Annotation
Small nucleolar RNA Z199: an 84-nucleotide RNA sequence from Carnegiea gigantea. It scores 66 bits against the family's covariance model. snoZ199 is a C/D box small nucleolar RNA, which acts as a methylation guide RNA for sites on 18S and 25S rRNA. Rice snoZ199 is reported to be homologous to Arabidopsis snoR13. Lineage of the source: Eukaryota > Streptophyta > Euphyllophyta > Gunneridae > Carnegiea.
[Rfam]
RNA sequence: AAUUCAUCUGAUGAGGACUAACUGCAACAAUGUGAAAGAGGCGAAUUCUGCAUGAUUCUUUUUGUAUUUAAGUCUCUGAUGAUU
Numbered sequence: 001a002a003u004u005c006a007u008c009u010g011a012u013g014a015g016g017a018c019u020a021a022c023u024g025c026a027a028c029a030a031u032g033u034g035a036a037a038g039a040g041g042c043g044a045a046u047u048c049u050g051c052a053u054g055a056u057u058c059u060u061u062u063u064g065u066a067u068u069u070a071a072g073u074c075u076c077u078g079a080u081g082a083u084u
Base pairs, nucleotide, nucleotide: 001084002083004082005081006080039049040048041047